This 101-nucleotide RNA sequence from Lachnoclostridium sp. An181 belongs to the Rfam family "THF (Tetrahydrofolate) riboswitch aptamer".
From the family's description: Tetrahydrofolate (THF) riboswitch was first reported for Ames et al. as an RNA motif in 5' untranslated (5'-UTR)regions of folate transport and biosynthesis genes in Firmicutes genomes.
NCBI's taxonomy places the organism under Bacteria, Bacillati, Lachnospirales, Lachnospiraceae, Lachnoclostridium.
Gene Ontology term of the family: tetrahydrofolate metabolic process.
The family has 101 seed sequences and 747 matches in Rfam 15.1.
On this family, see Ames et al., Chem Biol 2010: "A eubacterial riboswitch class that senses the coenzyme tetrahydrofolate".

RNA sequence: AGCAGAAUAGGAGUGUGCGCGUUAAGUGCCGGGUGAACGGGGAGUUGUCACCCGGACGAAAAGCUUAAAUGCUUGCGGUGCACAUUCCGCAUCCCGCUGCU
Numbered sequence: 001a002g003c004a005g006a007a008u009a010g011g012a013g014u015g016u017g018c019g020c021g022u023u024a025a026g027u028g029c030c031g032g033g034u035g036a037a038c039g040g041g042g043a044g045u046u047g048u049c050a051c052c053c054g055g056a057c058g059a060a061a062a063g064c065u066u067a068a069a070u071g072c073u074u075g076c077g078g079u080g081c082a083c084a085u086u087c088c089g090c091a092u093c094c095c096g097c098u099g100c101u
Stems, first nucleotide, its partner, number of pairs: 001101005010088010020077003026057002029055008040094003044090001061074004